[Rfam]
RNA sequence: GGUGAAGUCACUGGAGGCAGCGGUUCAUCGAUCUCUUCCUGGAGGAUUUUGUUGUGGAAUUAACACAAACACAUGAAUCGAUCGAUAAACCUCUGCAUCCAGCGCUUGCCCU
Numbered sequence: 001g002g003u004g005a006a007g008u009c010a011c012u013g014g015a016g017g018c019a020g021c022g023g024u025u026c027a028u029c030g031a032u033c034u035c036u037u038c039c040u041g042g043a044g045g046a047u048u049u050u051g052u053u054g055u056g057g058a059a060u061u062a063a064c065a066c067a068a069a070c071a072c073a074u075g076a077a078u079c080g081a082u083c084g085a086u087a088a089a090c091c092u093c094u095g096c097a098u099c100c101a102g103c104g105c106u107u108g109c110c111c112u
Stems, first nucleotide, its partner, number of pairs: 013100003018095003022091004027086007036077003
MIR162_1 microRNA precursor family: a 112-nucleotide sequence from Manihot esculenta. The literature on the family includes a 2002 paper in Genes Dev by Reinhart et al., "MicroRNAs in plants". The match comes from Rfam's covariance-model search (117 bits). The family's consensus secondary structure was predicted with RNAalifold.